[Rfam]
Nucleotides: 143
Base pairs, nucleotide, nucleotide: 007022008021009020010019011018030048031047032046033045034044035043057081058080059079060078061077062076063075064074065073066072099123100122101121102120103119
Number, partner (000 for none) and nucleotide at each position: 001000g002000c003000a004000a005000u006000c007022c008021u009020u010019g011018c012000u013000g014000a015000u016000a017000a018011g019010c020009a021008g022007g023000a024000u025000g026000a027000u028000a029000a030048g031047u032046a033045a034044u035043u036000g037000a038000a039000c040000u041000g042000u043035a044034a045033u046032u047031a048030c049000g050000c051000c052000g053000u054000a055000g056000g057081u058080a059079u060078u061077u062076a063075u064074g065073c066072a067000a068000u069000c070000g071000a072066u073065g074064c075063a076062u077061a078060a079059a080058u081057a082000g083000a084000a085000g086000g087000g088000a089000a090000u091000u092000a093000a094000u095000a096000c097000g098000c099123u100122g101121u102120u103119u104000u105000g106000c107000u108000g109000a110000u111000a112000a113000g114000a115000a116000a117000g118000c119103g120102a121101a122100c123099a124000c125000a126000u127000a128000u129000u130000g131000a132000a133000g134000g135000a136000a137000c138000c139000c140000a141000a142000c143000a